RNA: mir-2060 microRNA precursor family
Organism: Branchiostoma belcheri
RNA sequence: GGAUUUGUGGAUGGUGUUCAGCACCAAGGACAGGCAUGUCUGCAUGUGUGUAGAUGGUGAUCAGCACCAAGGACAGGUGUGUUUACCU
Dot-bracket structure: ...(.......(((((((.(.(((((.(.(((.(((....))).))).).....))))).).)))))))...)...............